[Rfam]
RNA sequence: AAAAAUAAUUUAACCCUGCUUCGUAUAUUCCCGGAAAUGCGGUCCGGGAGUUUCUACCAGGCAACCGUAAAUUGCCCGGCUACGAAGGUUAUUCUUCGUCGU
Dot-bracket structure: ..................(((((((...(((((((.......)))))))........(.(((((.......))))).)..)))))))...............
The family of this 102-nucleotide RNA sequence from Neomoorella thermoacetica is "Purine riboswitch aptamer". Rfam's curators put it in the seed alignment. The literature on the family includes a 2004 paper in Nature by Batey et al., "Structure of a natural guanine-responsive riboswitch complexed with the metabolite hypoxanthine".